Rfam assigns this 93-nucleotide RNA from Gammaproteobacteria bacterium LSUCC0057 to the family "TPP riboswitch aptamer (THI element)". Gene Ontology term of the family: thiamine pyrophosphate binding. The organism belongs to Porticoccaceae, within Bacteria.

RNA sequence: GUUUUUCCUAAGGGGCGGCCACACCACGGCCUGAGAUGCACCCUUGAACCUGAUCCGGAUAAUGCCGGCGUAGGAAUAGGAUCUAGCGCAGUC
Dot-bracket structure: .....(((((((((.(((((.......))))......)..))))....((((..((((......))))..))))..)))))............